[Rfam]
RNA: glmS glucosamine-6-phosphate activated ribozyme aptamer
RNA sequence: CCUUUUAAAAAAGCGCCAGACCUUACUUAAGGUGACGAGGAAAGAAUUUAUCGAAGAUUUUCGGCGGAUAAUUCUAGGAUCUGCAUUCUAUAGAGUUCUGACAAAAUUAAGUAGCAAUACUUUUGCCAAAACAGAAUUCAAGCAGAACA
Dot-bracket structure: ...................(((((....))))).........(((((...((((......))))......)))))(((((....)))))...(((((((.........(((((....)))))..........)))))))..........